[Rfam]
RNA sequence: AUGGAUAAAGGCAAACUAUGUGAAAGCAUAGGACGCAAAGCCACGGGUCUUAAGCAGCAGCAAGACAGCCGGGUUACCGAAU
Numbered sequence: 001a002u003g004g005a006u007a008a009a010g011g012c013a014a015a016c017u018a019u020g021u022g023a024a025a026g027c028a029u030a031g032g033a034c035g036c037a038a039a040g041c042c043a044c045g046g047g048u049c050u051u052a053a054g055c056a057g058c059a060g061c062a063a064g065a066c067a068g069c070c071g072g073g074u075u076a077c078c079g080a081a082u
Base pairs, nucleotide, nucleotide: 001082004078011036012035016031017030018029019028020027021026034068039075040074041073042072044071045070046069047066048065049064050063051062
A member of the RNA family "c-di-GMP-I-GGC riboswitch aptamer" from Paenibacillus lutrae, 82 nucleotides long. The match comes from Rfam's covariance-model search (69 bits). The source organism's lineage runs through Bacteria, Bacillati, Bacilli, Caryophanales and Paenibacillus.